Rfam assigns this 56-nucleotide sequence from Gossypium schwendimanii to the family "Plastid-rps18 3UTR RNA". It scores 62 bits against the family's covariance model. NCBI's taxonomy places the organism under Eukaryota, eudicotyledons, Pentapetalae, Malvales, Gossypium.

RNA sequence: UGCAAGAUUUUUCGAUUUAGAAGCAACUGUGUCUUGUACAGAUUGUGUAUUAAUCU
Numbered sequence: 001u002g003c004a005a006g007a008u009u010u011u012u013c014g015a016u017u018u019a020g021a022a023g024c025a026a027c028u029g030u031g032u033c034u035u036g037u038a039c040a041g042a043u044u045g046u047g048u049a050u051u052a053a054u055c056u
Stems, first nucleotide, its partner, number of pairs: 017036001019034003023030002
For this family Rfam cites "Retrograde signaling in plants: A critical review focusing on the GUN pathway and beyond" (Richter et al., Plant Commun, 2023). By type it is a cis-regulatory element. Plastid rps18 is a non-coding RNA (ncRNA) present in plastids. It was identified as a short stem-loop motif in the 3 prime untranslate region (3UTR) of rps18 gene.